[Rfam]
Nucleotides: 069
Base pairs, nucleotide, nucleotide: 002068003067004066005065
Number, partner (000 for none) and nucleotide at each position: 001000c002068u003067g004066c005065a006000u007000g008000u009000g010000a011000u012000g013000u014000a015000a016000a017000c018000u019000u020000u021000a022000u023000a024000u025000u026000u027000g028000c029000u030000c031000u032000g033000a034000a035000u036000g037000u038000c039000u040000g041000u042000g043000a044000u045000g046000c047000a048000u049000u050000c051000a052000a053000a054000g055000g056000a057000a058000c059000c060000a061000c062000u063000g064000a065005u066004g067003c068002a069000a
The family of this 69-nucleotide sequence from Oreochromis niloticus is "Small nucleolar RNA SNORD42". Gene Ontology terms of the family: nucleolus and RNA processing. By type it is a C/D-box small nucleolar RNA. About the family: snoRNA U42 is found in intron 3 of the ribosomal protein L23a (RPL23a) gene in humans and is also present in mice. A search with the family's covariance model found it, with a score of 43 bits.